[Rfam]
RNA sequence: AGUAAUAGCUAGGGGUGCCUAAUAUUUUGGGCUGAGAUAUACCCUUAGAACCUGAGACUGGAUAAUACCAGCGGAGGGAAGCUGUUUAUUGAGGAA
Numbered sequence: 001a002g003u004a005a006u007a008g009c010u011a012g013g014g015g016u017g018c019c020u021a022a023u024a025u026u027u028u029g030g031g032c033u034g035a036g037a038u039a040u041a042c043c044c045u046u047a048g049a050a051c052c053u054g055a056g057a058c059u060g061g062a063u064a065a066u067a068c069c070a071g072c073g074g075a076g077g078g079a080a081g082c083u084g085u086u087u088a089u090u091g092a093g094g095a096a
Base pairs, nucleotide, nucleotide: 006084007083008082009081010080011045012044013043014042016039017032018031019030020029021028051077052076053075058071059070060069061068

A member of the RNA family "TPP riboswitch aptamer (THI element)" from Pleurocapsales cyanobacterium LEGE 06147, 96 nucleotides long. About the family: Vitamin B(1) in its active form thiamin pyrophosphate (TPP) is an essential coenzyme that is synthesised by coupling of pyrimidine and thiazole moieties in bacteria. Rfam links the family to the GO term thiamine pyrophosphate binding. Lineage of the source: Bacteria > Bacillati > Cyanobacteriota > Cyanophyceae > Pleurocapsales. It scores 72 bits against the family's covariance model.